[Rfam]
RNA sequence: ACGAGACCGCCGCCUAAUCGCCCACAGCGAGCCGGGGACCCAGGUUCCUCAGGGGUGAAUCCGCCUUCCCGGCGGUAGGGAUCGCUUCCGUCCCGAACCCGUCAGCUAACCCGGUCGGCGGCCGACGGAAGGAAGG
Numbered sequence: 001a002c003g004a005g006a007c008c009g010c011c012g013c014c015u016a017a018u019c020g021c022c023c024a025c026a027g028c029g030a031g032c033c034g035g036g037g038a039c040c041c042a043g044g045u046u047c048c049u050c051a052g053g054g055g056u057g058a059a060u061c062c063g064c065c066u067u068c069c070c071g072g073c074g075g076u077a078g079g080g081a082u083c084g085c086u087u088c089c090g091u092c093c094c095g096a097a098c099c100c101g102u103c104a105g106c107u108a109a110c111c112c113g114g115u116c117g118g119c120g121g122c123c124g125a126c127g128g129a130a131g132g133a134a135g136g
Stems, first nucleotide, its partner, number of pairs: 011120004018030003031115006041052001053100003061075004078094004
Shown here is a 136-nucleotide sequence from Mangrovihabitans endophyticus, a member of the family "c-di-AMP riboswitch aptamer (ydaO/yuaA leader)".
About the family: This family represents a conserved RNA structure found upstream of the ydaO and yuaA genes in Bacillus subtilis and related genes in other bacteria.
The source organism's lineage runs through Bacteria, Bacillati, Actinomycetes, Micromonosporales and Mangrovihabitans.